The family of this 68-nucleotide sequence from Pangasianodon hypophthalmus is "miR-430 microRNA precursor family". The family is grouped with related families in Rfam's "mir-290 clan".
RNA sequence: UAGAUUACUUCAAACAGAAGCACUGAUUUUCAUAUCAUUAAUAAGUGCUACUCUUUGGGGCAGUCUCU
Dot-bracket structure: ...(((.((((..(.((.((((((.(((...........))).)))))).))..).)))).)))....
Lineage of the source: Eukaryota > Craniata > Teleostei > Siluroidei > Pangasianodon. A reference for the family is Giraldez et al. (2005), "MicroRNAs regulate brain morphogenesis in zebrafish", Science. It scores 48 bits against the family's covariance model.